RNA: Small nucleolar RNA R44/J54/Z268 family
RNA sequence: UUUGCAAGUGACGAUUAACAGACAGGGACAUCAGAAAAUAUUCUGUGUUGACUAUAGUCUAUAAUGGGAAUCUCUCUGAUGCAUA
Numbered sequence: 001u002u003u004g005c006a007a008g009u010g011a012c013g014a015u016u017a018a019c020a021g022a023c024a025g026g027g028a029c030a031u032c033a034g035a036a037a038a039u040a041u042u043c044u045g046u047g048u049u050g051a052c053u054a055u056a057g058u059c060u061a062u063a064a065u066g067g068g069a070a071u072c073u074c075u076c077u078g079a080u081g082c083a084u085a
Stems, first nucleotide, its partner, number of pairs: 003083004